[Rfam]
RNA sequence: UUUACACAGACAUUUUGGCAUGCUGGCCACCUCCAAGUCAUGCAUUAAGCAAAAUUUUAAUGGAGGUGGACAGAAUGCCAAGAUGGCUCUGUAAC
Numbered sequence: 001u002u003u004a005c006a007c008a009g010a011c012a013u014u015u016u017g018g019c020a021u022g023c024u025g026g027c028c029a030c031c032u033c034c035a036a037g038u039c040a041u042g043c044a045u046u047a048a049g050c051a052a053a054a055u056u057u058u059a060a061u062g063g064a065g066g067u068g069g070a071c072a073g074a075a076u077g078c079c080a081a082g083a084u085g086g087c088u089c090u091g092u093a094a095c
Base pairs, nucleotide, nucleotide: 011085015081016080017079018078019077020076024072025071027069028068029067030066031065032064033063034062
Record summary:
MIR394 microRNA precursor family: a 95-nucleotide RNA sequence from Nelumbo nucifera. Rfam links the family to the GO terms RISC complex and miRNA-mediated post-transcriptional gene silencing. Rfam 15.1 lists 724 matches to the family in 216 species. The match comes from Rfam's covariance-model search (71 bits).